[Rfam]
RNA: PyrR binding site
Organism: Alkalicoccus halolimnae
RNA sequence: AACACCUUUUAAUAACGUCCCGAGAGACGUUAAAGGGUGGAUCUGUUCCAAAACGAUAAUUUUGGAACAGGGCACCCGUAUAUCAAAUAUCGGGUGCUUUUUUAU
Numbered sequence: 001a002a003c004a005c006c007u008u009u010u011a012a013u014a015a016c017g018u019c020c021c022g023a024g025a026g027a028c029g030u031u032a033a034a035g036g037g038u039g040g041a042u043c044u045g046u047u048c049c050a051a052a053a054c055g056a057u058a059a060u061u062u063u064g065g066a067a068c069a070g071g072g073c074a075c076c077c078g079u080a081u082a083u084c085a086a087a088u089a090u091c092g093g094g095u096g097c098u099u100u101u102u103u104a105u
Base pairs, nucleotide, nucleotide: 005036006035007034008033009032014031015030016029017028018027019026045068046067047066048065049064050063051062052061053060069100070099071098072097073096074095075094076093077092078091080090081089082088083087